[Rfam]
RNA sequence: CUGAGAGAAGGUGAUGGACCCCGCCUGGGUGGUGACAGCCCUAACUGCAUUUUGCUGAUGGUUCCUACGACGUU
Dot-bracket structure: .........((((..[[[.[[)))).....................((.....))....]].]]].........
Numbered sequence: 001c002u003g004a005g006a007g008a009a010g011g012u013g014a015u016g017g018a019c020c021c022c023g024c025c026u027g028g029g030u031g032g033u034g035a036c037a038g039c040c041c042u043a044a045c046u047g048c049a050u051u052u053u054g055c056u057g058a059u060g061g062u063u064c065c066u067a068c069g070a071c072g073u074u
Stems, first nucleotide, its partner, number of pairs: 010025004016065003020061002047055002